Shown here is a 66-nucleotide RNA from Otolemur garnettii, a member of the family "U7 small nuclear RNA". From the family's description: Animal histone pre-mRNAs are spliced by a different mechanism than nuclear pre-mRNAs and self-splicing introns. A search with the family's covariance model found it, with a score of 40 bits.

RNA sequence: UAGAACUUACAGCUCUUGUAGAAUUUACCUAGUAGGCCUUCCAGUCUCUACCAGAGGGAUGCCACU
Numbered sequence: 001u002a003g004a005a006c007u008u009a010c011a012g013c014u015c016u017u018g019u020a021g022a023a024u025u026u027a028c029c030u031a032g033u034a035g036g037c038c039u040u041c042c043a044g045u046c047u048c049u050a051c052c053a054g055a056g057g058g059a060u061g062c063c064a065c066u
Stems, first nucleotide, its partner, number of pairs: 035063003039059004044051002